[Rfam]
RNA sequence: AAUCUGUUUCAGGGCGAGGUGAAAGUCCUCACCGGCGGUGAUUGAUCCGAUGAUCAUAAGUCCGCGAACCUAUCUAUAGGCCGAACAGGUGUGAAUCCUGUACCGACGGUUAAAGUCCGGAUGAAAGAAACGAAGA
Numbered sequence: 001a002a003u004c005u006g007u008u009u010c011a012g013g014g015c016g017a018g019g020u021g022a023a024a025g026u027c028c029u030c031a032c033c034g035g036c037g038g039u040g041a042u043u044g045a046u047c048c049g050a051u052g053a054u055c056a057u058a059a060g061u062c063c064g065c066g067a068a069c070c071u072a073u074c075u076a077u078a079g080g081c082c083g084a085a086c087a088g089g090u091g092u093g094a095a096u097c098c099u100g101u102a103c104c105g106a107c108g109g110u111u112a113a114a115g116u117c118c119g120g121a122u123g124a125a126a127g128a129a130a131c132g133a134a135g136a
Stems, first nucleotide, its partner, number of pairs: 003134001005132006017029003031116002033105002035065004060103002069080002085101005107119003
RNA: FMN riboswitch aptamer (RFN element)
Organism: Lentihominibacter hominis